[Rfam]
RNA sequence: AGGUGUGUGAGGAGUAAGUUGAAGCCCCCGGAGUCGAAACAAGGAAAGACGCCCAGGGGCUUUUUCU
Number, nucleotide and partner (000 for none) at each position: 001a000002g000003g000004u000005g000006u000007g000008u000009g000010a000011g000012g000013a000014g000015u000016a000017a000018g000019u000020u000021g063022a062023a061024g060025c059026c000027c000028c058029c057030g054031g053032a000033g050034u049035c048036g000037a000038a000039a000040c000041a000042a000043g000044g000045a000046a000047a000048g035049a034050c033051g000052c000053c031054c030055a000056g000057g029058g028059g025060c024061u023062u022063u021064u000065u000066c000067u000

About this RNA:
Shown here is a 67-nucleotide RNA from Synechocystis sp. PCC 6803, a member of the family "Cyano-1 RNA". Rfam 15.1 lists 283 matches to the family in 194 species.